[Rfam]
A member of the RNA family "Bacterial large subunit ribosomal RNA" from Pelagicoccus mobilis, 440 nucleotides of a longer RNA. Lineage of the source: Bacteria > Pseudomonadati > Puniceicoccales > Pelagicoccaceae > Pelagicoccus. A search with the family's covariance model found it, with a score of 2817 bits. Its family is annotated with structural constituent of ribosome and ribosome in the Gene Ontology. The family's consensus secondary structure is taken from published work.
RNA sequence: CUUUCCGAAAUAUAUUUAGGUAUAGCGUCAUGUGCUGACUCUCGGAGGUAGAGCACUGAAUGGGCUAGGGGCCACACCCGGUUACCAACCCCAAUCAAACUCCGAAUGCCGAGAGGUGAAACAUGGCAGUCAGACAGCGGGUGAUAACGUCCGUUGUCGAGAGGGCAACAACCCAGACCUACGACUAAGGUCCCUAAACAUCGUUCAGUGGAGAAGGAUGUGGAUUUACACAGACAAUGAGGAUGUUGGCUUAGAGGCAGCCACCAUUUAAACAGUGCGUAAUAGCUGACUCAUCGAGUGAAUCUGCGCCGAAAAUGAUCGGGACUCAAACGAUGUACCGAAGUCUAGGACUCAGCACUUUGUGCUGUUUGGUAGGAAAGCGUUCCAACAGGAGUGAAGGGGAAGCGGCAAGCGACCCUGGACCGGUUGGAAGUGAGAAU
Dot-bracket structure: ((((((....(((((....))))).((((((((..((.(((((((.....(((...(((.((((...((((((......)))).))...)))).)))..)).).....))))))).)..)))))))).)...((((((((((......))))))))))....(((......)))...((((.(((...(((......(((((((...........((..((((((((((.......(((((.(((..(((.........)))..)))(...)(...((......)).).)))))...)))))))))).))...................))))))))))...)))))))(..(((((.....)))))..)....))))))(.(((((((.((......((((..((.....))..))))...)).)))))))..).....